[Rfam]
RNA sequence: AGGAGGAACAACCCCAGUGGCGGGUCCAGCUCUGGAGCCCUGGAGUCAGGUCCUGCAGUAACUCCAGAGGCCUCCAUCUGCAGGGCCUGGAGGCUCCAGGGCAGG
Numbered sequence: 001a002g003g004a005g006g007a008a009c010a011a012c013c014c015c016a017g018u019g020g021c022g023g024g025u026c027c028a029g030c031u032c033u034g035g036a037g038c039c040c041u042g043g044a045g046u047c048a049g050g051u052c053c054u055g056c057a058g059u060a061a062c063u064c065c066a067g068a069g070g071c072c073u074c075c076a077u078c079u080g081c082a083g084g085g086c087c088u089g090g091a092g093g094c095u096c097c098a099g100g101g102c103a104g105g
Stems, first nucleotide, its partner, number of pairs: 002097004009089002012085003019078002022075003030069007040058003
This 105-nucleotide RNA sequence from Vulpes vulpes belongs to the Rfam family "mir-8834 microRNA precursor family". Rfam links the family to the GO terms RISC complex and miRNA-mediated post-transcriptional gene silencing. It scores 67 bits against the family's covariance model. The organism belongs to Vulpes, within Eukaryota.